[Rfam]
A member of the RNA family "SAM riboswitch aptamer (S box leader)" from Savagea serpentis, 103 nucleotides long. NCBI's taxonomy places the organism under Bacteria, Bacillati, Bacillota, Bacilli, Savagea.
RNA sequence: UCCUUAUCAAGAGCAGGGGAGGAACUGGUCCUAUGAUCCUGCGGCAACCACCUAUGAAAGGGAACGGUGCUAAUUCCAGCAAGCUUAGCUUGAAAGAUGAGGA
Number, nucleotide and partner (000 for none) at each position: 001u103002c102003c101004u100005u099006a098007u097008c096009a000010a000011g000012a000013g042014c041015a040016g039017g038018g000019g000020a000021g031022g030023a029024a000025c079026u078027g077028g076029u023030c022031c021032u000033a000034u000035g000036a000037u000038c017039c016040u015041g014042c013043g071044g070045c069046a068047a000048c067049c066050a000051c062052c061053u060054a000055u000056g000057a000058a000059a000060g053061g052062g051063a000064a000065c000066g049067g048068u046069g045070c044071u043072a000073a000074u000075u095076c028077c027078a026079g025080c092081a091082a090083g089084c088085u000086u000087a000088g084089c083090u082091u081092g080093a000094a000095a075096g008097a007098u006099g005100a004101g003102g002103a001